[Rfam]
Selenocysteine transfer RNA: a 91-nucleotide RNA from Fusobacterium sp. FSA-380-WT-3A. Clan: tRNA clan.

RNA sequence: GGAAGCGGCAGAAAACUGGUGUUUUCAGCAGUCUUCAAAACUGUAUUGGUGGGACAUAGUUCCAUGAUAGGUUCGAUUCCUAUACGCUUCC
Numbered sequence: 001g002g003a004a005g006c007g008g009c010a011g012a013a014a015a016c017u018g019g020u021g022u023u024u025u026c027a028g029c030a031g032u033c034u035u036c037a038a039a040a041c042u043g044u045a046u047u048g049g050u051g052g053g054a055c056a057u058a059g060u061u062c063c064a065u066g067a068u069a070g071g072u073u074c075g076a077u078u079c080c081u082a083u084a085c086g087c088u089u090c091c
Stems, first nucleotide, its partner, number of pairs: 001091007008083001011026006028044005047064003051060001068082004